[Rfam]
RNA: Small nucleolar RNA SNORD97
RNA sequence: GCGCCCAGUGAUUAUAAAAAGACGCGUUAUUCUGAGGGUUUUUACCAGAUGUCAGCUUUUCUUCCUUUUCUCCUCUCUUUUUUUCUUCUUCUGUUCUCUGCUCUGAAGCUGACAACUGGUCCUUUGACUGCGAUUAUGAGAUAUGAGGGUGC
Numbered sequence: 001g002c003g004c005c006c007a008g009u010g011a012u013u014a015u016a017a018a019a020a021g022a023c024g025c026g027u028u029a030u031u032c033u034g035a036g037g038g039u040u041u042u043u044a045c046c047a048g049a050u051g052u053c054a055g056c057u058u059u060u061c062u063u064c065c066u067u068u069u070c071u072c073c074u075c076u077c078u079u080u081u082u083u084u085c086u087u088c089u090u091c092u093g094u095u096c097u098c099u100g101c102u103c104u105g106a107a108g109c110u111g112a113c114a115a116c117u118g119g120u121c122c123u124u125u126g127a128c129u130g131c132g133a134u135u136a137u138g139a140g141a142u143a144u145g146a147g148g149g150u151g152c
Base pairs, nucleotide, nucleotide: 001152002151003150004149005148006147035062036061037060038059